[Rfam]
Nucleotides: 082
Base pairs, nucleotide, nucleotide: 003055004054005053006052007051008050009049010048011047012046015043017070018069019068020067021066026039027038028037029036061075062074063073
Number, partner (000 for none) and nucleotide at each position: 001000c002000a003055g004054u005053u006052c007051c008050g009049g010048u011047g012046u013000a014000a015043c016000u017070g018069g019068c020067g021066a022000c023000g024000a025000u026039g027038u028037g029036g030000a031000u032000g033000a034000a035000a036029c037028c038027a039026c040000g041000g042000u043015g044000g045000a046012g047011c048010a049009u050008c051007g052006g053005a054004a055003u056000a057000u058000a059000c060000g061075g062074c063073c064000g065000g066021u067020c068019g069018c070017c071000u072000g073063g074062g075061c076000a077000a078000g079000a080000g081000c082000a
The record is an 82-nucleotide sequence from Paenibacillus yonginensis, which matches "ZMP/ZTP riboswitch aptamer (pfl RNA motif)" in Rfam. The base pairs follow the family's consensus structure, which is taken from published work.